RNA sequence: AGAUGAGAUGAUGAAUGAGAUUAAAUUUCCUAUUGUUUUGAUUGGCCGAUAUGAUGGCCCAAAUACUGAACCAAAUAUGAUCAUCA
Dot-bracket structure: .((((..................................(...((((........))))).....................)))).
Numbered sequence: 001a002g003a004u005g006a007g008a009u010g011a012u013g014a015a016u017g018a019g020a021u022u023a024a025a026u027u028u029c030c031u032a033u034u035g036u037u038u039u040g041a042u043u044g045g046c047c048g049a050u051a052u053g054a055u056g057g058c059c060c061a062a063a064u065a066c067u068g069a070a071c072c073a074a075a076u077a078u079g080a081u082c083a084u085c086a
Stems, first nucleotide, its partner, number of pairs: 002085004040060001044059004